[Rfam]
RNA sequence: UGGGUAGUAUCAGAAAUGAACUGCACCAGUUUGUAUUUGUGUGUUUUUUUUAUUCUGCUCAUAUUAGAAAUAAAUGAGACAGAUUU
Numbered sequence: 001u002g003g004g005u006a007g008u009a010u011c012a013g014a015a016a017u018g019a020a021c022u023g024c025a026c027c028a029g030u031u032u033g034u035a036u037u038u039g040u041g042u043g044u045u046u047u048u049u050u051u052a053u054u055c056u057g058c059u060c061a062u063a064u065u066a067g068a069a070a071u072a073a074a075u076g077a078g079a080c081a082g083a084u085u086u
Stems, first nucleotide, its partner, number of pairs: 001028003004024005010019002055082003058078005064073003
Description: Rfam assigns this 86-nucleotide RNA sequence from Clostridium acetireducens to the family "pan motif". It scores 59 bits against the family's covariance model. Taxonomically the source falls in Clostridium acetireducens (Bacteria, Bacillati, Bacillota, Clostridia). It is annotated as a cis-regulatory element.